[Rfam]
RNA sequence: UUAGGAGUAGGAUCUAGCGCGUUAAGUGUCGGCGGAACGGAAUGUGAACGCUGAACGAAAAACUAAUCGUUUGCGGUGCUAGAUCCGCAUUCGCCACU
Numbered sequence: 001u002u003a004g005g006a007g008u009a010g011g012a013u014c015u016a017g018c019g020c021g022u023u024a025a026g027u028g029u030c031g032g033c034g035g036a037a038c039g040g041a042a043u044g045u046g047a048a049c050g051c052u053g054a055a056c057g058a059a060a061a062a063c064u065a066a067u068c069g070u071u072u073g074c075g076g077u078g079c080u081a082g083a084u085c086c087g088c089a090u091u092c093g094c095c096a097c098u
Stems, first nucleotide, its partner, number of pairs: 004095002010086010020075003026056002029054006040092005060072004
A member of the RNA family "THF (Tetrahydrofolate) riboswitch aptamer" from Fructilactobacillus fructivorans, 98 nucleotides long. Pairs were carried over by alignment from the consensus structure, which is taken from published work. The literature on the family includes a 2010 paper in Chem Biol by Ames et al., "A eubacterial riboswitch class that senses the coenzyme tetrahydrofolate". The organism belongs to Fructilactobacillus, within Bacteria. The match comes from Rfam's covariance-model search (80 bits). About the family: Tetrahydrofolate (THF) riboswitch was first reported for Ames et al. as an RNA motif in 5' untranslated (5'-UTR)regions of folate transport and biosynthesis genes in Firmicutes genomes.